[Rfam]
Notes
A member of the RNA family "Small nucleolar RNA SNORA81" from Mastacembelus armatus, 180 nucleotides long. A reference for the family is Gu et al. (2005), "A novel experimental approach for systematic identification of box H/ACA snoRNAs from eukaryotes", Nucleic Acids Res. Rfam links the family to the GO terms nucleolus and RNA processing.

RNA sequence: CCCUUCUGCAUUAACAGACAUCUGCUAUAGUUGAGUGAUCCAGAUUUUCUGUUUCAUGCAAUAAUGUUAGCAGACUAAUACACAGAAGGAGAUUAUUGUGCACUGCAUUGAAAAUGAGAUGAGGUCGAACCUCUUUCUUAAUGUUCAUUGGUCUCUGUCUCAAGCUGCAGUGCCACACAC
Dot-bracket structure: ....................(.(((((..((((..((...(((.....)))...)).....))))..))))).).........................((((((((................(..(((..............)))..)................)))))))).......
Taxonomically the source falls in Mastacembelus (Eukaryota, Metazoa, Chordata, Acanthomorphata).